[Rfam]
The record is a 115-nucleotide RNA sequence from Crocuta crocuta, which matches "Small nucleolar RNA SNORA11" in Rfam. Its family is annotated with RNA processing and nucleolus in the Gene Ontology. U107 (SNORA11) is a member of the H/ACA class of snoRNAs that guide the sites of modification of uridines to pseudouridines. This snoRNA was identified by RT-PCR from blood cells and its expression confirmed by Northern blot analysis. There is no predicted target for this guide snRNA. The source organism's lineage runs through Eukaryota, Gnathostomata, Euteleostomi, Dipnotetrapodomorpha and Crocuta. It is annotated as an H/ACA-box small nucleolar RNA. A reference for the family is Gu et al. (2005), "A novel experimental approach for systematic identification of box H/ACA snoRNAs from eukaryotes", Nucleic Acids Res. The family's consensus secondary structure was predicted with RNAalifold.

RNA sequence: GGGGUGUGCUCAGAACAGGGGGCCUGAAGAAAUGGCUCCUCUGUUUACAACACACCCAACAAGAAUUAAAGGGCACAGAACUCGUGGCCUUCCUAUGAACAGAUACCCUACAUGU
Numbered sequence: 001g002g003g004g005u006g007u008g009c010u011c012a013g014a015a016c017a018g019g020g021g022g023c024c025u026g027a028a029g030a031a032a033u034g035g036c037u038c039c040u041c042u043g044u045u046u047a048c049a050a051c052a053c054a055c056c057c058a059a060c061a062a063g064a065a066u067u068a069a070a071g072g073g074c075a076c077a078g079a080a081c082u083c084g085u086g087g088c089c090u091u092c093c094u095a096u097g098a099a100c101a102g103a104u105a106c107c108c109u110a111c112a113u114g115u
Stems, first nucleotide, its partner, number of pairs: 002057007013046009022036003066101001067097002070090003074086003078082001